Rfam assigns this 129-nucleotide sequence from Callithrix jacchus to the family "U8 small nucleolar RNA". It is annotated as a C/D-box small nucleolar RNA. Rfam links the family to the GO terms RNA processing and nucleolus. On this family, see Peculis et al., Gene 2001: "The U8 snoRNA gene family: identification and characterization of distinct, functional U8 genes in Xenopus".
RNA sequence: UCUUCAGGUGGGAUAAUCCUUACCUGUUCCUCCUUUGGAGGGCAGAUAGAACAUGAUGAUUGGAGUUGCAUGAAACGUGAUUAACGUCUCUGCGUAAUCAGGACUUGCAACACCCUGAUUGCUCCUGAU
Numbered sequence: 001u002c003u004u005c006a007g008g009u010g011g012g013a014u015a016a017u018c019c020u021u022a023c024c025u026g027u028u029c030c031u032c033c034u035u036u037g038g039a040g041g042g043c044a045g046a047u048a049g050a051a052c053a054u055g056a057u058g059a060u061u062g063g064a065g066u067u068g069c070a071u072g073a074a075a076c077g078u079g080a081u082u083a084a085c086g087u088c089u090c091u092g093c094g095u096a097a098u099c100a101g102g103a104c105u106u107g108c109a110a111c112a113c114c115c116u117g118a119u120u121g122c123u124c125c126u127g128a129u
Base pairs, nucleotide, nucleotide: 024045025044026043028042029041030040031039032038033037072090073089075087076086077085078083094122095121096120097119098118099117100116101115102114